[Rfam]
RNA sequence: AAAAGAAGGGAACGGUCGCUGCUGAUGUAGUUAUUCGCAUCAUUUAUAUCACAGUGGCUGUUCUUUUUUGUU
Numbered sequence: 001a002a003a004a005g006a007a008g009g010g011a012a013c014g015g016u017c018g019c020u021g022c023u024g025a026u027g028u029a030g031u032u033a034u035u036c037g038c039a040u041c042a043u044u045u046a047u048a049u050c051a052c053a054g055u056g057g058c059u060g061u062u063c064u065u066u067u068u069u070g071u072u
Stems, first nucleotide, its partner, number of pairs: 004069002007066007016057006023051002026048004

The family of this 72-nucleotide RNA sequence from Drosophila ananassae is "mir-6 microRNA precursor family". Rfam describes the family as follows. This family consists of the microRNA (miRNA) precursor mir-6 which appears to be Drosophila specific. Animal miRNAs are transcribed as ~70nt precursors and subsequently processed by the Dicer enzyme to give a ~22nt product. In this case the mature sequence comes from the 3' arm of the precursor. The extents of the hairpin precursors are not generally known and are estimated based on hairpin prediction. The sequence is in the family's curated seed alignment.